[Rfam]
Description
Shown here is a 77-nucleotide sequence from Alligator sinensis, a member of the family "Mammalian CPEB3 ribozyme". Lineage of the source: Eukaryota > Vertebrata > Sarcopterygii > Dipnotetrapodomorpha > Alligator. The base pairs follow the family's consensus structure, which is taken from published work. For this family Rfam cites "A genomewide search for ribozymes reveals an HDV-like sequence in the human CPEB3 gene" (Salehi-Ashtiani et al., Science, 2006).
RNA sequence: AGUUACAAGUUUGAGGCUACAGUAGAAGUGCUUAUAGCGUAGCCUGUCAAAUUCCAACAAAAUCUGUGAAUUCUGCU
Numbered sequence: 001a002g003u004u005a006c007a008a009g010u011u012u013g014a015g016g017c018u019a020c021a022g023u024a025g026a027a028g029u030g031c032u033u034a035u036a037g038c039g040u041a042g043c044c045u046g047u048c049a050a051a052u053u054c055c056a057a058c059a060a061a062a063u064c065u066g067u068g069a070a071u072u073c074u075g076c077u
Stems, first nucleotide, its partner, number of pairs: 015044004021077007028040003048066002051063003